A member of the RNA family "Guanidine-I riboswitch aptamer" from Clostridium grantii, 97 nucleotides long. From the family's description: This family represents a conserved RNA structure found upstream of the ykkC and yxkD genes in Bacillus subtilis and related genes in other bacteria. Pairs were carried over by alignment from the consensus structure.
RNA sequence: AAAAUAGUUUUCUAGGGUUCCACAGUUUGUAACUGGAUAGGUCCAAGAGAAAACACACAGUUCUCUGUGUACACGGAAGGAUAAAAGCCUGGGAGAU
Numbered sequence: 001a002a003a004a005u006a007g008u009u010u011u012c013u014a015g016g017g018u019u020c021c022a023c024a025g026u027u028u029g030u031a032a033c034u035g036g037a038u039a040g041g042u043c044c045a046a047g048a049g050a051a052a053a054c055a056c057a058c059a060g061u062u063c064u065c066u067g068u069g070u071a072c073a074c075g076g077a078a079g080g081a082u083a084a085a086a087g088c089c090u091g092g093g094a095g096a097u
Stems, first nucleotide, its partner, number of pairs: 007054006015044002020041002022038001023035005055070006072092001074095001078090003
A search with the family's covariance model found it, with a score of 86 bits.
The organism belongs to Clostridium grantii, within Bacteria.